[Rfam]
RNA: Lysine riboswitch aptamer
Organism: Propionigenium maris
RNA sequence: UUAUAAAAUAGAGGUGCGUUUAAUGGAGGUAGUCUAAGGGUGCUAAGGGAAGGGACUCCCAAUAUCUUAGGCGAAGAACUUAUCUGCCGAAGGGAAGAAUCUGUCCAAAUUAGGAUUGUUCCUUGGGUGUCACAGAAACCUGUGGCAACUGUCAUGGCUUUGCCAUGGUGAGCUAUUUUAGCC
Numbered sequence: 001u002u003a004u005a006a007a008a009u010a011g012a013g014g015u016g017c018g019u020u021u022a023a024u025g026g027a028g029g030u031a032g033u034c035u036a037a038g039g040g041u042g043c044u045a046a047g048g049g050a051a052g053g054g055a056c057u058c059c060c061a062a063u064a065u066c067u068u069a070g071g072c073g074a075a076g077a078a079c080u081u082a083u084c085u086g087c088c089g090a091a092g093g094g095a096a097g098a099a100u101c102u103g104u105c106c107a108a109a110u111u112a113g114g115a116u117u118g119u120u121c122c123u124u125g126g127g128u129g130u131c132a133c134a135g136a137a138a139c140c141u142g143u144g145g146c147a148a149c150u151g152u153c154a155u156g157g158c159u160u161u162g163c164c165a166u167g168g169u170g171a172g173c174u175a176u177u178u179u180a181g182c183c
Base pairs, nucleotide, nucleotide: 006178007177008176009175010174011173016087017086018085021082022081023080032072033071034070035069036068037067038066039065091124092123093122094121095120096119098117099116100115101114102113125150126149128147129146130145131144132143133142134141135140152168153167154166155165156164157163158162